RNA sequence: ACUGCUUCUCAGCCUUUUGGCUGAGUGUGGUAUCUGUUCUCAGCAGUGCAAUAUCUGCUGUGUCCUCUACCCGAGGACAAUAUUAAAUGGAUAUUUGGAGCGGGGAGACGGAACAGGGUCUUGCUCCAUCCUCUCCGCAUAUCAACCUGGAUUUGCAGUACCCCCGGGAAUGAUGCACCCUCC
Numbered sequence: 001a002c003u004g005c006u007u008c009u010c011a012g013c014c015u016u017u018u019g020g021c022u023g024a025g026u027g028u029g030g031u032a033u034c035u036g037u038u039c040u041c042a043g044c045a046g047u048g049c050a051a052u053a054u055c056u057g058c059u060g061u062g063u064c065c066u067c068u069a070c071c072c073g074a075g076g077a078c079a080a081u082a083u084u085a086a087a088u089g090g091a092u093a094u095u096u097g098g099a100g101c102g103g104g105g106a107g108a109c110g111g112a113a114c115a116g117g118g119u120c121u122u123g124c125u126c127c128a129u130c131c132u133c134u135c136c137g138c139a140u141a142u143c144a145a146c147c148u149g150g151a152u153u154u155g156c157a158g159u160a161c162c163c164c165c166g167g168g169a170a171u172g173a174u175g176c177a178c179c180c181u182c183c
Stems, first nucleotide, its partner, number of pairs: 008025002011022004041060006062078006104136005110130002116127003140175005146168005
RNA: U2 spliceosomal RNA